[Rfam]
A member of the RNA family "Molybdenum/Tungsten riboswitch aptamer (Moco RNA motif)" from Tepidimicrobium xylanilyticum, 126 nucleotides long. The match comes from Rfam's covariance-model search (66 bits). A reference for the family is Regulski et al. (2008), "in molybdenum cofactor and tungsten cofactor metabolism", Mol Microbiol. Lineage of the source: Bacteria > Bacillota > Tissierellia > Tepidimicrobiaceae > Tepidimicrobium.
RNA sequence: UAGCUCCAUAGUCUCCGAGCAUUUUGGCCUGGGAAUUUACACUAUAAAUUUAUGGUCAACUUGCCGAUAGGGUUUGACUGGAAACGGUCAAGCCUCCCAGUGGAAAGGAGAAGUUUAAAGAUGCGG
Numbered sequence: 001u002a003g004c005u006c007c008a009u010a011g012u013c014u015c016c017g018a019g020c021a022u023u024u025u026g027g028c029c030u031g032g033g034a035a036u037u038u039a040c041a042c043u044a045u046a047a048a049u050u051u052a053u054g055g056u057c058a059a060c061u062u063g064c065c066g067a068u069a070g071g072g073u074u075u076g077a078c079u080g081g082a083a084a085c086g087g088u089c090a091a092g093c094c095u096c097c098c099a100g101u102g103g104a105a106a107g108g109a110g111a112a113g114u115u116u117a118a119a120g121a122u123g124c125g126g
Base pairs, nucleotide, nucleotide: 012111013110014109015108016107019064020063021062024059025058026057027056028055029054033051034050035049036048037047038046039045070095071094072093073092074091075090076089077088078087079086080085096103097102